[Rfam]
RNA sequence: CUCACUCAUCGCCCAGGGAGGGAGGGCGGCCAUUUGUGGCCGCUACCUCUUCAACUGGGCGGUGAAGACA
Numbered sequence: 001c002u003c004a005c006u007c008a009u010c011g012c013c014c015a016g017g018g019a020g021g022g023a024g025g026g027c028g029g030c031c032a033u034u035u036g037u038g039g040c041c042g043c044u045a046c047c048u049c050u051u052c053a054a055c056u057g058g059g060c061g062g063u064g065a066a067g068a069c070a
Stems, first nucleotide, its partner, number of pairs: 006065011017050005026040002029037002
Dot-bracket structure: .....((((((((((((((((....((.((.....)).)).....)))))....))))))))))).....
A member of the RNA family "Hepatitis C virus stem-loop VII" from Orthohepacivirus hominis, 70 nucleotides long. NCBI's taxonomy places the organism under Viruses, Flasuviricetes, Amarillovirales, Orthohepacivirus hominis, Hepatitis C virus genotype 2. Pairs were carried over by alignment from the consensus structure, which was predicted with RNAfold. The literature on the family includes a 2016 paper in Mol Cell by Pirakitikulr et al., "The Coding Region of the HCV Genome Contains a Network of Regulatory RNA Structures".